[Rfam]
RNA: Makes More Granules Regulator RNA (mmgR)
Organism: Rhodospirillum rubrum
RNA sequence: AAGAGCUGCUUCUUGGACGUUUCCUCCCUAAACUCGGGCCGUGGUUUUUCCACGGCCCCUUUUUCUGUCCGCC
Numbered sequence: 001a002a003g004a005g006c007u008g009c010u011u012c013u014u015g016g017a018c019g020u021u022u023c024c025u026c027c028c029u030a031a032a033c034u035c036g037g038g039c040c041g042u043g044g045u046u047u048u049u050c051c052a053c054g055g056c057c058c059c060u061u062u063u064u065c066u067g068u069c070c071g072c073c
Stems, first nucleotide, its partner, number of pairs: 008018001010016001036058009
Dot-bracket structure: .......(.(.....).).................(((((((((.....)))))))))...............